Description: The family of this 114-nucleotide RNA from Nakamurella leprariae is "SAM (S-adenosyl methionine) riboswitch aptamer". On this family, see Weinberg et al., RNA 2008: "The aptamer core of SAM-IV riboswitches mimics the ligand-binding site of SAM-I riboswitches". The base pairs follow the family's consensus structure, which is taken from published work. A search with the family's covariance model found it, with a score of 99 bits. Rfam's curators write: SAM-IV is a mRNA element that regulates gene expression via direct sensing of S-adenosylmethionine (SAM or AdoMet).
[Rfam]
RNA sequence: GGUCAUGAGUUCCAGCGCACAGCCCCGGCUCGCUGGACGGCAACCCUCCUUCCGCGGCGGGGUGCUCCGGGUGAGGACCGGGCGGUCGCGCCUCGCGCGCCGCAAGCGCGGACC
Numbered sequence: 001g002g003u004c005a006u007g008a009g010u011u012c013c014a015g016c017g018c019a020c021a022g023c024c025c026c027g028g029c030u031c032g033c034u035g036g037a038c039g040g041c042a043a044c045c046c047u048c049c050u051u052c053c054g055c056g057g058c059g060g061g062g063u064g065c066u067c068c069g070g071g072u073g074a075g076g077a078c079c080g081g082g083c084g085g086u087c088g089c090g091c092c093u094c095g096c097g098c099g100c101c102g103c104a105a106g107c108g109c110g111g112a113c114c
Stems, first nucleotide, its partner, number of pairs: 001079004009038001011037006021030002039066003044062003048057002082103004087099005